[Rfam]
RNA sequence: AGGAUACUCCAACGGCAUUCCUCCUCCCAGCCGUUGGAGACGCGAGACCCGGUACCUCCUCCCUCCGGCUCUCGCACAAAUGGAAAAAGGCCGGAUCCUCCCCCGGCCUUUUUCUUUU
Numbered sequence: 001a002g003g004a005u006a007c008u009c010c011a012a013c014g015g016c017a018u019u020c021c022u023c024c025u026c027c028c029a030g031c032c033g034u035u036g037g038a039g040a041c042g043c044g045a046g047a048c049c050c051g052g053u054a055c056c057u058c059c060u061c062c063c064u065c066c067g068g069c070u071c072u073c074g075c076a077c078a079a080a081u082g083g084a085a086a087a088a089g090g091c092c093g094g095a096u097c098c099u100c101c102c103c104c105g106g107c108c109u110u111u112u113u114c115u116u117u118u
Base pairs, nucleotide, nucleotide: 007039008038009037010036011035012034013033014032015031016030043074044073045072046071047070049068050067051066052065084113085112086111087110088109089108090107091106092105093104094103
Dot-bracket structure: ......((((((((((.............))))))))))...(((((.((((............)))).))))).........(((((((((((........))))))))))).....
Rfam assigns this 118-nucleotide RNA sequence from Phyllobacterium zundukense to the family "Alphaproteobacterial ar14". A reference for the family is del Val et al. (2012), "A survey of sRNA families in alpha-proteobacteria", RNA Biol. Taxonomically the source falls in Phyllobacterium (Bacteria, Pseudomonadati, Pseudomonadota, Phyllobacteriaceae). Rfam describes the family as follows. Smr14C2 was renamed NfeR1 (Nodule Formation Efficiency RNA) highly expressed in salt stress and during the symbiotic interaction on legume roots.